[Rfam]
RNA sequence: GCGCUUUCGGGAGACAUCGAUCCGCCGGAUUGUUCGGUCACAUCACUAGACCGGCGGGGAGUCAAUUGUGAGACCGGCCCGUUCGA
Numbered sequence: 001g002c003g004c005u006u007u008c009g010g011g012a013g014a015c016a017u018c019g020a021u022c023c024g025c026c027g028g029a030u031u032g033u034u035c036g037g038u039c040a041c042a043u044c045a046c047u048a049g050a051c052c053g054g055c056g057g058g059g060a061g062u063c064a065a066u067u068g069u070g071a072g073a074c075c076g077g078c079c080c081g082u083u084c085g086a
Stems, first nucleotide, its partner, number of pairs: 004085001008081004013063003022057007036075002038071005

Shown here is an 86-nucleotide sequence, a member of the family "c-di-GMP-II-GAG riboswitch aptamer".
On this family, see Weinberg et al., Proc Natl Acad Sci U S A 2017: "Bioinformatic analysis of riboswitch structures uncovers variant classes with altered ligand specificity".
Its Rfam clan is "c-di-GMP_II riboswitch clan".